[Rfam]
Nucleotides: 094
Base pairs, nucleotide, nucleotide: 001094002093003092004091005090
Number, partner (000 for none) and nucleotide at each position: 001094g002093c003092u004091g005090u006000u007000c008000g009000a010000u011000g012000a013000g014000g015000a016000g017000g018000c019000u020000c021000u022000g023000g024000a025000a026000u027000g028000a029000g030000c031000g032000c033000u034000g035000g036000g037000c038000a039000c040000a041000g042000c043000g044000c045000c046000c047000g048000a049000g050000u051000c052000a053000g054000a055000c056000u057000g058000c059000g060000g061000a062000a063000g064000c065000a066000u067000u068000c069000c070000u071000a072000g073000c074000u075000g076000c077000c078000u079000u080000c081000c082000u083000u084000c085000u086000g087000a088000g089000a090005g091004c092003a093002g094001u
Rfam assigns this 94-nucleotide RNA sequence from Equus caballus to the family "Small nucleolar RNA U83B". About the family: U83B belongs to the C/D family of snoRNAs. U83B like U83A has no documented RNA target and they share the same host gene with the C/D box snoRNA U43 (RPL3). N.B. U83A/B/C have no sequence similarity with the U83 snoRNA that was cloned by Jady and Kiss (2000). Rfam links the family to the GO terms RNA processing and nucleolus.